RNA sequence: GCCGGGUGCGGUGGCGCGUGCCUGUAAUCCAAGCUACCGGGAGGCUGAGGUUGGAGGAUCGUUUGAGCUCACGAGCUCUGAGCUGCAGCAGGCUAUGUCAAUUGGGUGUCCGUACUAAGUUCGGCAUCGAUAUGGUGAUCCUGGGGGAGCCUGGAACCGCCAGGUCACCUAAGGAGGGGUGCCCAGGUCGGAGACGGAGCAGGUCAAAGCCCCCAUGCUGCUCAGCAGUGGGAUUGCACCUGUGAAUAGAUUUUGUAGAGCAAUACAGCGAGACCCAAUUUUAA
Numbered sequence: 001g002c003c004g005g006g007u008g009c010g011g012u013g014g015c016g017c018g019u020g021c022c023u024g025u026a027a028u029c030c031a032a033g034c035u036a037c038c039g040g041g042a043g044g045c046u047g048a049g050g051u052u053g054g055a056g057g058a059u060c061g062u063u064u065g066a067g068c069u070c071a072c073g074a075g076c077u078c079u080g081a082g083c084u085g086c087a088g089c090a091g092g093c094u095a096u097g098u099c100a101a102u103u104g105g106g107u108g109u110c111c112g113u114a115c116u117a118a119g120u121u122c123g124g125c126a127u128c129g130a131u132a133u134g135g136u137g138a139u140c141c142u143g144g145g146g147g148a149g150c151c152u153g154g155a156a157c158c159g160c161c162a163g164g165u166c167a168c169c170u171a172a173g174g175a176g177g178g179g180u181g182c183c184c185a186g187g188u189c190g191g192a193g194a195c196g197g198a199g200c201a202g203g204u205c206a207a208a209g210c211c212c213c214c215a216u217g218c219u220g221c222u223c224a225g226c227a228g229u230g231g232g233a234u235u236g237c238a239c240c241u242g243u244g245a246a247u248a249g250a251u252u253u254u255g256u257a258g259a260g261c262a263a264u265a266c267a268g269c270g271a272g273a274c275c276c277a278a279u280u281u282u283a284a
Stems, first nucleotide, its partner, number of pairs: 001045003004023007028042003047282008059271005067261003078258003086255003090251001093249004098244001103242007110232002113230004119223001122220006129166003133162005139156001141154005168174002176213005182203002188197003

The family of this 284-nucleotide sequence from Haplochromis burtoni is "Metazoan signal recognition particle RNA".
Its Rfam clan is "SRP clan".
Rfam classes the family as a non-coding RNA gene.
Rfam 15.1 lists 383,523 matches to the family in 1,221 species.
Lineage of the source: Eukaryota > Cichlomorphae > Cichlidae > Haplochromini > Haplochromis.